Connexin-43 internal ribosome entry site (IRES): a 188-nucleotide RNA from Sylvietta virens. The match comes from Rfam's covariance-model search (105 bits). Taxonomically the source falls in Sylvietta (Eukaryota, Euteleostomi, Saurischia, Australaves). On this family, see Schiavi et al., FEBS Lett 1999: "Connexin43 mRNA contains a functional internal ribosome entry site". About the family: This family represents the connexin-43 internal ribosome entry site (IRES) which allows cap independent translation during conditions such as heat shock and stress.

RNA sequence: AGUUUUACGAGGUAUCAGCACUUUUCUUUCAUUAGUGGGGAAGGAUGAAAAAUACAAAACAGCAGUAGACUUUUAAAGUUUAAAUAGACAGGUCUGAGUGCCUGAACGUGCUCUUCCAUUUUAGUUUAACCCUCCAAAGAAGUACUCUGAUCCAUUUUCACUGCUGAUCAGCAAGGGUAAGUUGCAAG
Numbered sequence: 001a002g003u004u005u006u007a008c009g010a011g012g013u014a015u016c017a018g019c020a021c022u023u024u025u026c027u028u029u030c031a032u033u034a035g036u037g038g039g040g041a042a043g044g045a046u047g048a049a050a051a052a053u054a055c056a057a058a059a060c061a062g063c064a065g066u067a068g069a070c071u072u073u074u075a076a077a078g079u080u081u082a083a084a085u086a087g088a089c090a091g092g093u094c095u096g097a098g099u100g101c102c103u104g105a106a107c108g109u110g111c112u113c114u115u116c117c118a119u120u121u122u123a124g125u126u127u128a129a130c131c132c133u134c135c136a137a138a139g140a141a142g143u144a145c146u147c148u149g150a151u152c153c154a155u156u157u158u159c160a161c162u163g164c165u166g167a168u169c170a171g172c173a174a175g176g177g178u179a180a181g182u183u184g185c186a187a188g
Stems, first nucleotide, its partner, number of pairs: 002019003006014003028141003032137002035134001037132002040127003044120004051115002067095006096111001098109003153181001156177003161171003